[Rfam]
RNA sequence: UCUGGAUGACCAAGAAGGCAGAAUCUGAUGAAGCAAGACUGCUUAUACAAUUCUCUUAGAAAAAAGGAUUGGAGAGAGCAGCCCUUACUGGAAAAUAUCACAGGGUUGCCUGUACUAUCCAAUAUUG
Numbered sequence: 001u002c003u004g005g006a007u008g009a010c011c012a013a014g015a016a017g018g019c020a021g022a023a024u025c026u027g028a029u030g031a032a033g034c035a036a037g038a039c040u041g042c043u044u045a046u047a048c049a050a051u052u053c054u055c056u057u058a059g060a061a062a063a064a065a066g067g068a069u070u071g072g073a074g075a076g077a078g079c080a081g082c083c084c085u086u087a088c089u090g091g092a093a094a095a096u097a098u099c100a101c102a103g104g105g106u107u108g109c110c111u112g113u114a115c116u117a118u119c120c121a122a123u124a125u126u127g
Stems, first nucleotide, its partner, number of pairs: 002059002004056003008052002017043003021039001024038003066120004077111002079108007089100003
This 127-nucleotide RNA sequence from Loxodonta africana belongs to the Rfam family "Small Cajal body specific RNA 4".
Rfam 15.1 lists 634 matches to the family in 510 species.
scaRNAs are a specific class of small nuclear RNAs which localise to the Cajal bodies and guide the modification of RNA polymerase II transcribed spliceosomal RNAs U1, U2, U4, U5 and U12.
Rfam links the family to the GO terms RNA processing, nucleolus and Cajal body.
It is annotated as a small Cajal body RNA.
A reference for the family is Darzacq et al. (2002), "Cajal body-specific small nuclear RNAs: a novel class of 2'-O-methylation and pseudouridylation guide RNAs", EMBO J.